The record is a 107-nucleotide RNA from Plutella xylostella, which matches "mir-8517 microRNA precursor family" in Rfam. It scores 98 bits against the family's covariance model. Pairs were carried over by alignment from the consensus structure, which was predicted with RNAalifold. Gene Ontology terms of the family: RISC complex and miRNA-mediated post-transcriptional gene silencing. The source organism's lineage runs through Eukaryota, Altocrustacea, Allotriocarida, Neolepidoptera and Plutella.
RNA sequence: UUACUAGACGCUUUAGCUAUUGAACUGUUCUGGCACUCUCUGACAGAGAACAAUUUUUUUUUGACCGAGAGGCACAAAACAGUUCAAUAGCUAAAGCGUCCAGUAAC
Numbered sequence: 001u002u003a004c005u006a007g008a009c010g011c012u013u014u015a016g017c018u019a020u021u022g023a024a025c026u027g028u029u030c031u032g033g034c035a036c037u038c039u040c041u042g043a044c045a046g047a048g049a050a051c052a053a054u055u056u057u058u059u060u061u062u063g064a065c066c067g068a069g070a071g072g073c074a075c076a077a078a079a080c081a082g083u084u085c086a087a088u089a090g091c092u093a094a095a096g097c098g099u100c101c102a103g104u105a106a107c
Base pairs, nucleotide, nucleotide: 001106002105003104004103005102011096012095013094014093015092016091017090018089019088020087021086022085023084024083025082026081027080028079029068030067032065034063035062049058050057052056